[Rfam]
RNA sequence: GCAUAUUUCGGGUUUGUGCGUGAAUCUAAUGUCAAAUCACACACCUGGGUUUUCAGGGAUAUGGCAGUUAAUUUGGGGUGUAUUUAUUUGUUAGAUUCACGCAUAAACUCGUAAUAUGUCU
Numbered sequence: 001g002c003a004u005a006u007u008u009c010g011g012g013u014u015u016g017u018g019c020g021u022g023a024a025u026c027u028a029a030u031g032u033c034a035a036a037u038c039a040c041a042c043a044c045c046u047g048g049g050u051u052u053u054c055a056g057g058g059a060u061a062u063g064g065c066a067g068u069u070a071a072u073u074u075g076g077g078g079u080g081u082a083u084u085u086a087u088u089u090g091u092u093a094g095a096u097u098c099a100c101g102c103a104u105a106a107a108c109u110c111g112u113a114a115u116a117u118g119u120c121u
Base pairs, nucleotide, nucleotide: 001119002118003117005115006114007113011109012108013107014106015105016104017103018102019101020100021099022098023097024096025095026094028092029091030090042080044078045077046076
The record is a 121-nucleotide RNA sequence from Olea europaea, which matches "MIR403 microRNA precursor family" in Rfam. For this family Rfam cites "High throughput approaches reveal splicing of primary microRNA transcripts and tissue specific expression of mature microRNAs in Vitis vinifera" (Mica et al., BMC Genomics, 2009).